[Rfam]
The family of this 53-nucleotide sequence from Acidiphilium cryptum is "serC leader". It scores 47 bits against the family's covariance model.
RNA sequence: CCUCGGGUCACGCCCCCCCACCGGGGCGCUUAUCUUCUGCAAGGGAGACCAUC
Numbered sequence: 001c002c003u004c005g006g007g008u009c010a011c012g013c014c015c016c017c018c019c020a021c022c023g024g025g026g027c028g029c030u031u032a033u034c035u036u037c038u039g040c041a042a043g044g045g046a047g048a049c050c051a052u053c
Stems, first nucleotide, its partner, number of pairs: 011028006033048006
Dot-bracket structure: ..........((((((......))))))....((((((....)))))).....
This family is a putative regulatory RNA structure that is found upstream of the serC-serA operon in some alpha-proteobacteria. The final stem of the structure overlaps the ribosome binding site of the serC reading frame.
Lineage of the source: Bacteria > Pseudomonadati > Pseudomonadota > Acidiphilium > Acidiphilium cryptum.